[Rfam]
Record summary:
Shown here is a 69-nucleotide RNA from Strigomonas culicis, a member of the family "Trypanosomatid snoRNA TB6Cs1H1". Rfam 15.1 lists 100 matches to the family in 21 species. The family's RNA type in Rfam is H/ACA-box small nucleolar RNA. For this family Rfam cites "A genome-wide analysis of C/D and H/ACA-like small nucleolar RNAs in Trypanosoma brucei reveals a trypanosome-specific pattern of rRNA modification" (Liang et al., RNA, 2005).
RNA sequence: UGCCCAACAAAAACACAGGCAUAGUGUGUAUACUCUCUGUCACUAGACCUGCACCUGCGUUGGGCUAGA
Numbered sequence: 001u002g003c004c005c006a007a008c009a010a011a012a013a014c015a016c017a018g019g020c021a022u023a024g025u026g027u028g029u030a031u032a033c034u035c036u037c038u039g040u041c042a043c044u045a046g047a048c049c050u051g052c053a054c055c056u057g058c059g060u061u062g063g064g065c066u067a068g069a
Base pairs, nucleotide, nucleotide: 002065003064005062006061007060008059016051017050018049019048022045025042026041